[Rfam]
The record is a 61-nucleotide RNA from Ktedonospora formicarum, which matches "Fluoride riboswitch aptamer (crcB RNA motif)" in Rfam. A search with the family's covariance model found it, with a score of 62 bits.

RNA sequence: CUCUGGUCGGGCGAUGGAGUUCGCCGAAACCGCCCUUUGGGCUGAUGACUCCUACCAAAAA
Numbered sequence: 001c002u003c004u005g006g007u008c009g010g011g012c013g014a015u016g017g018a019g020u021u022c023g024c025c026g027a028a029a030c031c032g033c034c035c036u037u038u039g040g041g042c043u044g045a046u047g048a049c050u051c052c053u054a055c056c057a058a059a060a061a
Stems, first nucleotide, its partner, number of pairs: 010025004016052006032042003

Its family is annotated with response to fluoride and positive regulation of gene expression in the Gene Ontology.